RNA sequence: UCUUCUCCUUGACAAACAGAUCUGUGCCCUCUUGUCCCGGCCUACCUCCGGGUAGUGUCACGGUCUGACAUCUGGGCAGUUCGACAGCCAUGGAAACCUCCCGAUCACCGCAUCACACCCGAUGGAGCCAGUCCAGUCGACAGAUCUGAGAAAGAGUCGGCGGGAGUCGCCUGUCUCAUCUUGAGUUCCUUUGCGGAUUCGGUGGGGUGGGCGCUUUUUGCUGGGCGCUAUAUUCCGAAUCGUUCUCCGAGGCCGUUGGUCGUUGAGGGGAGGGACAAACCAUAGCUUGCCUACAUCU
Numbered sequence: 001u002c003u004u005c006u007c008c009u010u011g012a013c014a015a016a017c018a019g020a021u022c023u024g025u026g027c028c029c030u031c032u033u034g035u036c037c038c039g040g041c042c043u044a045c046c047u048c049c050g051g052g053u054a055g056u057g058u059c060a061c062g063g064u065c066u067g068a069c070a071u072c073u074g075g076g077c078a079g080u081u082c083g084a085c086a087g088c089c090a091u092g093g094a095a096a097c098c099u100c101c102c103g104a105u106c107a108c109c110g111c112a113u114c115a116c117a118c119c120c121g122a123u124g125g126a127g128c129c130a131g132u133c134c135a136g137u138c139g140a141c142a143g144a145u146c147u148g149a150g151a152a153a154g155a156g157u158c159g160g161c162g163g164g165a166g167u168c169g170c171c172u173g174u175c176u177c178a179u180c181u182u183g184a185g186u187u188c189c190u191u192u193g194c195g196g197a198u199u200c201g202g203u204g205g206g207g208u209g210g211g212c213g214c215u216u217u218u219u220g221c222u223g224g225g226c227g228c229u230a231u232a233u234u235c236c237g238a239a240u241c242g243u244u245c246u247c248c249g250a251g252g253c254c255g256u257u258g259g260u261c262g263u264u265g266a267g268g269g270g271a272g273g274g275a276c277a278a279a280c281c282a283u284a285g286c287u288u289g290c291c292u293a294c295a296u297c298u
Stems, first nucleotide, its partner, number of pairs: 018147008026077004033070004037063003040059001041057001043054004085139001087137002093129001097125002159219002166212002177204004183200006189193001224291003227286005240275002243272002246269003251261004

This 298-nucleotide RNA sequence from Friedmanniomyces simplex belongs to the Rfam family "A. fumigatus sRNA Afu_309". The organism belongs to Friedmanniomyces, within Eukaryota.